Annotation
The family of this 87-nucleotide RNA sequence from Liquorilactobacillus vini is "Bacterial small signal recognition particle RNA". From the family's description: The signal recognition particle (SRP) is a universally conserved ribonucleoprotein involved in the co-translational targeting of proteins to membranes. A search with the family's covariance model found it, with a score of 56 bits. Its family is annotated with signal recognition particle, plasma membrane targeting and SRP-dependent cotranslational protein targeting to membrane, signal sequence recognition in the Gene Ontology.

[Rfam]
RNA sequence: GCCUUGGGACAAUGUGAUCUCGGUGAAGCGUGUCAGAUCCGGAAGGAAGCAGCACUAAGCAGAGUAUGACAUGUGUUCCAAGUUAAU
Numbered sequence: 001g002c003c004u005u006g007g008g009a010c011a012a013u014g015u016g017a018u019c020u021c022g023g024u025g026a027a028g029c030g031u032g033u034c035a036g037a038u039c040c041g042g043a044a045g046g047a048a049g050c051a052g053c054a055c056u057a058a059g060c061a062g063a064g065u066a067u068g069a070c071a072u073g074u075g076u077u078c079c080a081a082g083u084u085a086a087u
Stems, first nucleotide, its partner, number of pairs: 004081006010073001012072004017067001019064003023060002030055004038047003